[Rfam]
A member of the RNA family "Mason-Pfizer monkey virus packaging signal" from Cercocebus atys, 271 nucleotides long.

RNA sequence: UGGCGCCCCGAACCAGGACCUGAGAACGAGGACUCCGUGAGGAAGAGACGCCAAAGGAUGUCGACCGCUAACCAGACAAAGGAGUAAAACUCUUCCGAUCACCGGCGGAACCGCCGGGUCUGAAUCGAAGGUAAGUGGCGCGUCGAAAGGGACAGAACAUUAAGUCAGAUCGAUCUAUGUAGGACAAUUAAAGAGGCUUAAAGAACGAGGAGAAAGGUAAAAGUAAUGUUUGUUUUAUAGUUUUUUGAUUUUGUAAAAGACACUUGCCCUG
Dot-bracket structure: .....(.(...................).).....(.(.......)).........................................(((.((....(((.(((((....)))))....)).)...)))))......((..((.....)).).).....((((((............................)))))).....(((((((...((((.......))))..........))))))).........(.(.(....).).).

A search with the family's covariance model found it, with a score of 107 bits.